[Rfam]
RNA: bip internal ribosome entry site (IRES)
RNA sequence: CGCGGUAAAGACAGCACGGAGUAGACUGACUAGGGGUUUCGGGAGGGUAAGGGGUAAACCCGCGGCCUGCUUUUCAGAACAUCUCCCCGCCUUGUUCGUGCUCCGGGCCCCUGCCGCCCUCACACCGGUAACCUCGCACACGCUCCGUGCUGCGGCCUGUGGCAGGAUUGCCUGCGACGUCCGUCUCCUGCCUGCGUGACCCUCUGCGUGCCGGCAAGAUGAAGCUCUCCCUGGUGGCUGCAGUGCUGC
Numbered sequence: 001c002g003c004g005g006u007a008a009a010g011a012c013a014g015c016a017c018g019g020a021g022u023a024g025a026c027u028g029a030c031u032a033g034g035g036g037u038u039u040c041g042g043g044a045g046g047g048u049a050a051g052g053g054g055u056a057a058a059c060c061c062g063c064g065g066c067c068u069g070c071u072u073u074u075c076a077g078a079a080c081a082u083c084u085c086c087c088c089g090c091c092u093u094g095u096u097c098g099u100g101c102u103c104c105g106g107g108c109c110c111c112u113g114c115c116g117c118c119c120u121c122a123c124a125c126c127g128g129u130a131a132c133c134u135c136g137c138a139c140a141c142g143c144u145c146c147g148u149g150c151u152g153c154g155g156c157c158u159g160u161g162g163c164a165g166g167a168u169u170g171c172c173u174g175c176g177a178c179g180u181c182c183g184u185c186u187c188c189u190g191c192c193u194g195c196g197u198g199a200c201c202c203u204c205u206g207c208g209u210g211c212c213g214g215c216a217a218g219a220u221g222a223a224g225c226u227c228u229c230c231c232u233g234g235u236g237g238c239u240g241c242a243g244u245g246c247u248g249c
Stems, first nucleotide, its partner, number of pairs: 003240004008235001014150006030106002033103003061100005153165001155163003